The record is a 378-nucleotide sequence from Bombilactobacillus apium, which matches "Bacterial RNase P class B" in Rfam. The family's RNA type in Rfam is ribozyme. The match comes from Rfam's covariance-model search (275 bits). Taxonomically the source falls in Bombilactobacillus (Bacteria, Bacillati, Lactobacillales, Lactobacillaceae). From the family's description: Ribonuclease P (RNase P) is a ubiquitous endoribonuclease, found in archaea, bacteria and eukarya as well as chloroplasts and mitochondria. Its best characterised activity is the generation of mature 5'-ends of tRNAs by cleaving the 5'-leader elements of precursor-tRNAs. Cellular RNase Ps are ribonucleoproteins.
RNA sequence: GGUUUUGAGUAAUUGCGGUUUGCUUAUGCAAAUUGAGGAAAGUCCACGCCGGCAUAAGCUGCAAUGCUUAUAGUGUUCGUGUUCAGCCCAAGAAGCUGGAGUACCUAUUUCUUAUAAUUAGGUAACGGCAGUGAAAGUGCUAAGGCGCAAGCUAAGUAUGAGUAACUUGAAAGUGCCACAGAAACGUAAACUUUUGGAAACAAAAGAGUGGAACGGGUAAACCCCUCGAGCAGGAAACCCAAACUUUGGUAGGGGAGCUUUGACAACGGGAAACAAACCAAAGUCAAAGACAUUGGAUCAUUACGAUUUAAUGUAGAUAGAUGAUUACUGAAAGUUAGUUGUGGUUAAGCUAACUGGAACAAAACGUGGCUUAUAGAA
Numbered sequence: 001g002g003u004u005u006u007g008a009g010u011a012a013u014u015g016c017g018g019u020u021u022g023c024u025u026a027u028g029c030a031a032a033u034u035g036a037g038g039a040a041a042g043u044c045c046a047c048g049c050c051g052g053c054a055u056a057a058g059c060u061g062c063a064a065u066g067c068u069u070a071u072a073g074u075g076u077u078c079g080u081g082u083u084c085a086g087c088c089c090a091a092g093a094a095g096c097u098g099g100a101g102u103a104c105c106u107a108u109u110u111c112u113u114a115u116a117a118u119u120a121g122g123u124a125a126c127g128g129c130a131g132u133g134a135a136a137g138u139g140c141u142a143a144g145g146c147g148c149a150a151g152c153u154a155a156g157u158a159u160g161a162g163u164a165a166c167u168u169g170a171a172a173g174u175g176c177c178a179c180a181g182a183a184a185c186g187u188a189a190a191c192u193u194u195u196g197g198a199a200a201c202a203a204a205a206g207a208g209u210g211g212a213a214c215g216g217g218u219a220a221a222c223c224c225c226u227c228g229a230g231c232a233g234g235a236a237a238c239c240c241a242a243a244c245u246u247u248g249g250u251a252g253g254g255g256a257g258c259u260u261u262g263a264c265a266a267c268g269g270g271a272a273a274c275a276a277a278c279c280a281a282a283g284u285c286a287a288a289g290a291c292a293u294u295g296g297a298u299c300a301u302u303a304c305g306a307u308u309u310a311a312u313g314u315a316g317a318u319a320g321a322u323g324a325u326u327a328c329u330g331a332a333a334g335u336u337a338g339u340u341g342u343g344g345u346u347a348a349g350c351u352a353a354c355u356g357g358a359a360c361a362a363a364a365c366g367u368g369g370c371u372u373a374u375a376g377a378a
Base pairs, nucleotide, nucleotide: 004378005377006376007374008329009328010327011326012325013324014323016035017034018033019032020031021030040372041371042370044369045368046367047366048365049234050233052231053230054071055070056069057068058067059066077229078228079227081225082100083099084098085097086096087095101126102124103123104122105121106120107119127224128223130167131166132165137159138158139157140156144153145152146151173222174221175218176217177216191206192205193204194203195202196201238254239253240252258289259288260287261286262285263284264283290314291313292312293311294310295309296308297307298306299305333355334354335353336352337351338350339349